Overview
The family of this 81-nucleotide sequence from Baryphthengus martii is "Small nucleolar RNA SNORD72". For this family Rfam cites "RNomics: an experimental approach that identifies 201 candidates for novel, small, non-messenger RNAs in mouse" (Huttenhofer et al., EMBO J, 2001). Rfam describes the family as follows. snoRNA HBII-240 belongs to the CD family of snoRNAs.
RNA sequence: AGUUUGUCAAUUAUGUUUCUUAUGUUCAGAUAUUUUUAAUAUGAACUCCAUAGUGAUUUCAGUGCAUUACUGAGAGAAGCU
Numbered sequence: 001a002g003u004u005u006g007u008c009a010a011u012u013a014u015g016u017u018u019c020u021u022a023u024g025u026u027c028a029g030a031u032a033u034u035u036u037u038a039a040u041a042u043g044a045a046c047u048c049c050a051u052a053g054u055g056a057u058u059u060c061a062g063u064g065c066a067u068u069a070c071u072g073a074g075a076g077a078a079g080c081u
Base pairs, nucleotide, nucleotide: 002080003079004078005077007075008074